A member of the RNA family "Selenocysteine transfer RNA" from Cladocopium goreaui, 86 nucleotides long. Its family is annotated with triplet codon-amino acid adaptor activity in the Gene Ontology. NCBI's taxonomy places the organism under Eukaryota, Sar, Dinophyceae, Symbiodiniaceae, Cladocopium.

[Rfam]
RNA sequence: GCCUCCGUGAGUCUGGCUGGUGCCAGGACUUGGCUUCAGUCCAAGGGGCUUGGGGACAAGCAGGAGUUCGAUUCUCCCUCGGAGGC
Numbered sequence: 001g002c003c004u005c006c007g008u009g010a011g012u013c014u015g016g017c018u019g020g021u022g023c024c025a026g027g028a029c030u031u032g033g034c035u036u037c038a039g040u041c042c043a044a045g046g047g048g049c050u051u052g053g054g055g056a057c058a059a060g061c062a063g064g065a066g067u068u069c070g071a072u073u074c075u076c077c078c079u080c081g082g083a084g085g086c
Stems, first nucleotide, its partner, number of pairs: 001086007009078001012027006029045005048061005063077004